Shown here is a 70-nucleotide RNA from Macaca fascicularis, a member of the family "mir-3689 microRNA precursor family". Rfam 15.1 lists 117 matches to the family in 18 species. Taxonomically the source falls in Macaca (Eukaryota, Opisthokonta, Gnathostomata, Cercopithecidae).

[Rfam]
RNA sequence: GGGGUGUGAUCCCGUGCUUCCUGGGGGGUGUGACCCCGCGCUCCCUGGGAGGUGUGAGCUCAUGCCUGUU
Numbered sequence: 001g002g003g004g005u006g007u008g009a010u011c012c013c014g015u016g017c018u019u020c021c022u023g024g025g026g027g028g029u030g031u032g033a034c035c036c037c038g039c040g041c042u043c044c045c046u047g048g049g050a051g052g053u054g055u056g057a058g059c060u061c062a063u064g065c066c067u068g069u070u
Base pairs, nucleotide, nucleotide: 001067002066003065013056014055015054016053018051019050020049021048022047023046024045025044026043027042029040030039031038032037

The base pairs follow the family's consensus structure, which was predicted with RNAalifold.